Rfam assigns this 134-nucleotide RNA sequence from Lachnospiraceae bacterium XBD2001 to the family "FMN riboswitch aptamer (RFN element)".
From the family's description: The RFN element is a highly conserved domain that is found frequently in the 5'-untranslated regions of prokaryotic mRNAs that encode for flavin mononucleotide (FMN) biosynthesis and transport proteins.
It scores 111 bits against the family's covariance model.
The organism belongs to Lachnospiraceae, within Bacteria.

RNA sequence: GGAAUUCUUCGGGGCAGGGUGAAAUUCCCGACCGACGGUGAGUCUUUUAUAGAUAAGUCCGUGACCUGCAGCAAUGCAGCUGAACCGGUGUGAAUCCGGUACCGACAGUACAGUCUGGAUGGGAGAAGAUACGA
Numbered sequence: 001g002g003a004a005u006u007c008u009u010c011g012g013g014g015c016a017g018g019g020u021g022a023a024a025u026u027c028c029c030g031a032c033c034g035a036c037g038g039u040g041a042g043u044c045u046u047u048u049a050u051a052g053a054u055a056a057g058u059c060c061g062u063g064a065c066c067u068g069c070a071g072c073a074a075u076g077c078a079g080c081u082g083a084a085c086c087g088g089u090g091u092g093a094a095u096c097c098g099g100u101a102c103c104g105a106c107a108g109u110a111c112a113g114u115c116u117g118g119a120u121g122g123g124a125g126a127a128g129a130u131a132c133g134a
Stems, first nucleotide, its partner, number of pairs: 006129005017029003031114002033104002035062004057102002066079002084100005106117003